[Rfam]
Nucleotides: 142
Stems, first nucleotide, its partner, number of pairs: 004140004008135002012131001014129002019124001023121001025119001027116003
Number, partner (000 for none) and nucleotide at each position: 001000u002000a003000a004140u005139u006138u007137a008135u009134u010000u011000g012131g013000a014129u015128u016000c017000g018000a019124u020000c021000c022000c023121u024000a025119u026000c027116u028115a029114a030000u031000u032000g033000u034000g035000c036000c037000a038000a039000a040000u041000c042000c043000u044000u045000a046000c047000a048000u049000g050000a051000g052000u053000g054000c055000u056000c057000c058000c059000a060000a061000c062000c063000u064000u065000u066000a067000a068000u069000u070000u071000c072000c073000a074000u075000a076000a077000g078000u079000u080000u081000g082000a083000g084000u085000g086000c087000a088000u089000c090000a091000a092000u093000u094000u095000g096000u097000u098000c099000u100000u101000g102000a103000g104000a105000a106000a107000a108000a109000a110000a111000a112000u113000u114029u115028u116027a117000a118000a119025a120000a121023a122000a123000c124019a125000a126000g127000a128015a129014a130000a131012u132000u133000a134009a135008g136000a137007u138006a139005a140004a141000a142000u